[Rfam]
RNA: terC RNA
Organism: Novosphingobium sp. Gsoil 351
RNA sequence: UCACAGGACCGGGCCCCUCUGGCGCGGCAUGGUGGCGGCAACGCCGGUAUGCCUCGUGAUGUCGGACUGUAUCG
Numbered sequence: 001u002c003a004c005a006g007g008a009c010c011g012g013g014c015c016c017c018u019c020u021g022g023c024g025c026g027g028c029a030u031g032g033u034g035g036c037g038g039c040a041a042c043g044c045c046g047g048u049a050u051g052c053c054u055c056g057u058g059a060u061g062u063c064g065g066a067c068u069g070u071a072u073c074g
Stems, first nucleotide, its partner, number of pairs: 006068002009065004022057003026053006